[Rfam]
RNA sequence: UGGAACAAUGUAGGCAAGGGAAGUCGGCAAAACGGAUCCGUAACUUCGGGAAAAGGAUUGGCUCUGAGGGUUGGGCUCGGGGGUCCCGGCCCCGAACCCGUCGGCUGCCGGCGGACUGCUCGAGCUGCUCACGCGGCGAGAGCGGGCCGCCGCGUGCCGGCCGGGGGACGGACCGGGAACGGUUCCUUCGGGGGCCUUCCCCGGGCGUCGAACAACCGACUCAGAACUGGUACGGACAAGGGGAAUCCGACUGUUUAAUUAAAACAAAGCAUUGCGAUGGUCCCCACGGAUGCUGACGCAAUGUGAUUUCUGCCCAGUGCUCUGAAUGUCAAAGUGAAGAAAUUCAACCAAGCGCGGGUAAACGGCGGGAGUAACUAUGACUCUCUUAAGGUAGCCAAAUGCCUCGUCAUCUAAUUAGUGACGCGCAUGAAUGGAUUAACGAGAUUCCCACUGUCCCUGUCUACUAUCCAGCGAAACCACAGCCAAGGGAACGGGCUUGGCGGA
Numbered sequence: 001u002g003g004a005a006c007a008a009u010g011u012a013g014g015c016a017a018g019g020g021a022a023g024u025c026g027g028c029a030a031a032a033c034g035g036a037u038c039c040g041u042a043a044c045u046u047c048g049g050g051a052a053a054a055g056g057a058u059u060g061g062c063u064c065u066g067a068g069g070g071u072u073g074g075g076c077u078c079g080g081g082g083g084u085c086c087c088g089g090c091c092c093c094g095a096a097c098c099c100g101u102c103g104g105c106u107g108c109c110g111g112c113g114g115a116c117u118g119c120u121c122g123a124g125c126u127g128c129u130c131a132c133g134c135g136g137c138g139a140g141a142g143c144g145g146g147c148c149g150c151c152g153c154g155u156g157c158c159g160g161c162c163g164g165g166g167g168a169c170g171g172a173c174c175g176g177g178a179a180c181g182g183u184u185c186c187u188u189c190g191g192g193g194g195c196c197u198u199c200c201c202c203g204g205g206c207g208u209c210g211a212a213c214a215a216c217c218g219a220c221u222c223a224g225a226a227c228u229g230g231u232a233c234g235g236a237c238a239a240g241g242g243g244a245a246u247c248c249g250a251c252u253g254u255u256u257a258a259u260u261a262a263a264a265c266a267a268a269g270c271a272u273u274g275c276g277a278u279g280g281u282c283c284c285c286a287c288g289g290a291u292g293c294u295g296a297c298g299c300a301a302u303g304u305g306a307u308u309u310c311u312g313c314c315c316a317g318u319g320c321u322c323u324g325a326a327u328g329u330c331a332a333a334g335u336g337a338a339g340a341a342a343u344u345c346a347a348c349c350a351a352g353c354g355c356g357g358g359u360a361a362a363c364g365g366c367g368g369g370a371g372u373a374a375c376u377a378u379g380a381c382u383c384u385c386u387u388a389a390g391g392u393a394g395c396c397a398a399a400u401g402c403c404u405c406g407u408c409a410u411c412u413a414a415u416u417a418g419u420g421a422c423g424c425g426c427a428u429g430a431a432u433g434g435a436u437u438a439a440c441g442a443g444a445u446u447c448c449c450a451c452u453g454u455c456c457c458u459g460u461c462u463a464c465u466a467u468c469c470a471g472c473g474a475a476a477c478c479a480c481a482g483c484c485a486a487g488g489g490a491a492c493g494g495g496c497u498u499g500g501c502g503g504a
Stems, first nucleotide, its partner, number of pairs: 001470004010464007018456003035059005044049001060228002063225006069217005075206009084178003088174002091171001097165004101160005109152006116145006124137005229233001241449007248441002252266003269304008280291004308435003312366003317363002319359004324355001327354003335346004367385006386390001406422005483500005
RNA: Eukaryotic large subunit ribosomal RNA, nucleotides 1880 to 2383